[Rfam]
RNA sequence: GCCAAACUUUAGGGGUGCCCGUUGUUUCGGGCUGAGACAUACCCUUUGAACCUGACCAGGUUAGGACCUGCGUAGGGAAAAGUGAGGAAUCUAUU
Numbered sequence: 001g002c003c004a005a006a007c008u009u010u011a012g013g014g015g016u017g018c019c020c021g022u023u024g025u026u027u028c029g030g031g032c033u034g035a036g037a038c039a040u041a042c043c044c045u046u047u048g049a050a051c052c053u054g055a056c057c058a059g060g061u062u063a064g065g066a067c068c069u070g071c072g073u074a075g076g077g078a079a080a081a082g083u084g085a086g087g088a089a090u091c092u093a094u095u
Stems, first nucleotide, its partner, number of pairs: 006083005011045004016039001017032005051076004057070004
RNA: TPP riboswitch aptamer (THI element)
Organism: Siphonobacter sp. BAB-5385